[Rfam]
RNA sequence: AUGCAUCUAUUUGACAGACCUGGAGCAGUUCCCAUUGCUGCUAAGGUUUCAGGUAGAGAUGCAAGAAAAAAGUGUCCUCGCGCUUUCUGUCUGUCAGGUUGUGGCAGUUAAGAUUGAAUGGGGGAACACAGUG
Numbered sequence: 001a002u003g004c005a006u007c008u009a010u011u012u013g014a015c016a017g018a019c020c021u022g023g024a025g026c027a028g029u030u031c032c033c034a035u036u037g038c039u040g041c042u043a044a045g046g047u048u049u050c051a052g053g054u055a056g057a058g059a060u061g062c063a064a065g066a067a068a069a070a071a072g073u074g075u076c077c078u079c080g081c082g083c084u085u086u087c088u089g090u091c092u093g094u095c096a097g098g099u100u101g102u103g104g105c106a107g108u109u110a111a112g113a114u115u116g117a118a119u120g121g122g123g124g125a126a127c128a129c130a131g132u133g
Base pairs, nucleotide, nucleotide: 002063003062004061005060006059007058008057011052012051016049017048018047019046020045024039025038026037027036028035029034075125076124077123078122079121083116086113087112088111091107092106093105094104095103
RNA: Small nucleolar RNA SNORA31